[Rfam]
RNA sequence: GCAGCGUUGUGUGCACAGUUUCCCAUCUGUGUCUGGUGGUAGGGUCUAUGUGUGUUUUGCAUGUAGGCUCUACUGCUCACACAAAACCUGUGGCCAAAAAUGAACCUGAGAUCAUAGUACUGGUCUAGUGAUGUCUGCUCCCACUGACCAGCCUCCACACUCUCAAACAUCU
Numbered sequence: 001g002c003a004g005c006g007u008u009g010u011g012u013g014c015a016c017a018g019u020u021u022c023c024c025a026u027c028u029g030u031g032u033c034u035g036g037u038g039g040u041a042g043g044g045u046c047u048a049u050g051u052g053u054g055u056u057u058u059g060c061a062u063g064u065a066g067g068c069u070c071u072a073c074u075g076c077u078c079a080c081a082c083a084a085a086a087c088c089u090g091u092g093g094c095c096a097a098a099a100a101u102g103a104a105c106c107u108g109a110g111a112u113c114a115u116a117g118u119a120c121u122g123g124u125c126u127a128g129u130g131a132u133g134u135c136u137g138c139u140c141c142c143a144c145u146g147a148c149c150a151g152c153c154u155c156c157a158c159a160c161u162c163u164c165a166a167a168c169a170u171c172u
Base pairs, nucleotide, nucleotide: 013091014090015089030083031082032081034079035078036077037075038074039073040072041071042070044068045067046066047065048064051061052060053059107165108164109163110162111161120151121150122149123148124147125146127145128144129143130142
RNA: Small nucleolar RNA SNORA23
Organism: Platysteira castanea